[Rfam]
RNA sequence: GGGCUCUUCAAAAAAGAAGAGGAAUUCAUACGAAUGCUACGCUCCCUUUCAAGAAAUUGAAAGGGAGCUUUCUUAUUUU
Number, nucleotide and partner (000 for none) at each position: 001g000002g000003g000004c000005u000006c000007u000008u000009c000010a000011a000012a000013a000014a000015a000016g000017a000018a000019g000020a000021g000022g000023a000024a000025u000026u000027c000028a000029u000030a000031c000032g000033a000034a000035u000036g000037c000038u000039a000040c000041g068042c067043u066044c065045c064046c063047u062048u061049u060050c059051a058052a057053g000054a000055a000056a000057u052058u051059g050060a049061a048062a047063g046064g045065g044066a043067g042068c041069u000070u000071u000072c000073u000074u000075a000076u000077u000078u000079u000